[Rfam]
Record summary: A member of the RNA family "Glycine riboswitch aptamer" from Oribacterium parvum, 89 nucleotides long.
RNA sequence: CAAGAUAUAUCCAGAGAGAGUGCAAACCACCGAAGAGGCAAGUUGCAAAGCGCAAUGAAUCUUUCAGGUAAAAGGAUGGAUAUAUUGGG
Numbered sequence: 001c002a003a004g005a006u007a008u009a010u011c012c013a014g015a016g017a018g019a020g021u022g023c024a025a026a027c028c029a030c031c032g033a034a035g036a037g038g039c040a041a042g043u044u045g046c047a048a049a050g051c052g053c054a055a056u057g058a059a060u061c062u063u064u065c066a067g068g069u070a071a072a073a074g075g076a077u078g079g080a081u082a083u084a085u086u087g088g089g
Stems, first nucleotide, its partner, number of pairs: 006084008020027002029069003032065002036063003042056005